The family of this 78-nucleotide RNA sequence from Rhizobium etli is "Makes More Granules Regulator RNA (mmgR)". The base pairs follow the family's consensus structure. NCBI's taxonomy places the organism under Bacteria, Pseudomonadati, Pseudomonadota, Rhizobium, Rhizobium etli. Rfam's curators write: SuhB later renamed mmgR (makes more granules regulator) was a putative non-coding RNA found multiple times in the Agrobacterium tumefaciens genome and related alpha-proteobacteria. Other non-coding RNAs uncovered in the same analysis include: speF, ybhL, metA, and serC.Several studies inSinorhizobium meliloti showed that suhB element is indeed a non-coding RNA:firstly it was detected on Northern blot and called Sm8RNA, secondly in an RNAseq study referred to as SmelC689.The mutant phenotype's (strain lacking the small RNA) cytoplasm contains higher content of polyhydroxybutyrate (PBH)storage granules than wild type strain. The sRNA is required to limit the PBH intracellular accumulation when the nitrogen-fixing Sinorhizobium meliloti is under condition of surplus carbon in relation to nitrogen. It has been renamed to mmgR. Further study confirmed that mmgR fine-tunes the regulation of PBH storage.Northern blot confirmed the expression of the sRNA in other rhizobia species. MmgR homologues were found in most alpha-proteobacteria. Rfam's curators put it in the seed alignment. Rfam 15.1 lists 1,791 matches to the family in 918 species. By type it is a small RNA.
RNA sequence: AGCUGUUCCCCUCUGGAGGUUUAUUGACCUUCACACUUCAUGGGCCGCGGUUUCCGCUGGCCCAUUUUUUUAUCUCCC
Numbered sequence: 001a002g003c004u005g006u007u008c009c010c011c012u013c014u015g016g017a018g019g020u021u022u023a024u025u026g027a028c029c030u031u032c033a034c035a036c037u038u039c040a041u042g043g044g045c046c047g048c049g050g051u052u053u054c055c056g057c058u059g060g061c062c063c064a065u066u067u068u069u070u071u072a073u074c075u076c077c078c
Stems, first nucleotide, its partner, number of pairs: 008019002011016001042063005047057004